[Rfam]
RNA sequence: GUCCAGUUUUCCCAGGAAUCCCUUGGGCAAUCGAAAGGGGGAUUCCUGGAAAUACUGUUCUU
Numbered sequence: 001g002u003c004c005a006g007u008u009u010u011c012c013c014a015g016g017a018a019u020c021c022c023u024u025g026g027g028c029a030a031u032c033g034a035a036a037g038g039g040g041g042a043u044u045c046c047u048g049g050a051a052a053u054a055c056u057g058u059u060c061u062u
Stems, first nucleotide, its partner, number of pairs: 004057004009052002012049012

The record is a 62-nucleotide RNA sequence from Ictalurus punctatus, which matches "mir-145 microRNA precursor family" in Rfam. For this family Rfam cites "The developmental miRNA profiles of zebrafish as determined by small RNA cloning" (Chen et al., Genes Dev, 2005). The source organism's lineage runs through Eukaryota, Bilateria, Deuterostomia, Craniata and Ictalurus. Its family is annotated with miRNA-mediated post-transcriptional gene silencing and RISC complex in the Gene Ontology.